[Rfam]
RNA sequence: GCGCGGGGCACGCCCAAUCCCCGCGAGGGGAGCCGGGGAACCAGCGGCGGCGACCCCCAUCGCCGCCACCCGGGGUGAAUCCGAGUCGGUUCGGUAGGGCUGCUCCGGCCCGAACCCGUCAGCUAACCCGGUCGGCGUCGAGGAAGGGAGCA
Dot-bracket structure: ..........((((...(((((....)))))((((((....(.............................)(((.....((((......))))..((((.......))))...))).........)))))).))))...............
c-di-AMP riboswitch aptamer (ydaO/yuaA leader): a 152-nucleotide RNA from Nonomuraea sp. PA05.